[Rfam]
RNA sequence: AAGAAAUGCAUUCUAAACUUGUACUGUAUAUGUUAAUAUAACAUAUACAGUACAAGUUUAGAAUGCAUUUCUAUGCAUUGGAAGCUAUUGUCUUCCAAUAGCUGAG
Numbered sequence: 001a002a003g004a005a006a007u008g009c010a011u012u013c014u015a016a017a018c019u020u021g022u023a024c025u026g027u028a029u030a031u032g033u034u035a036a037u038a039u040a041a042c043a044u045a046u047a048c049a050g051u052a053c054a055a056g057u058u059u060a061g062a063a064u065g066c067a068u069u070u071c072u073a074u075g076c077a078u079u080g081g082a083a084g085c086u087a088u089u090g091u092c093u094u095c096c097a098a099u100a101g102c103u104g105a106g
Stems, first nucleotide, its partner, number of pairs: 002072015018056005024050004029045001031043003

Notes:
Shown here is a 106-nucleotide RNA, a member of the family "Actinobacteria sRNA Ms_IGR-7". On this family, see Li et al., RNA 2013: "Identification of small RNAs in Mycobacterium smegmatis using heterologous Hfq". It is annotated as a small RNA.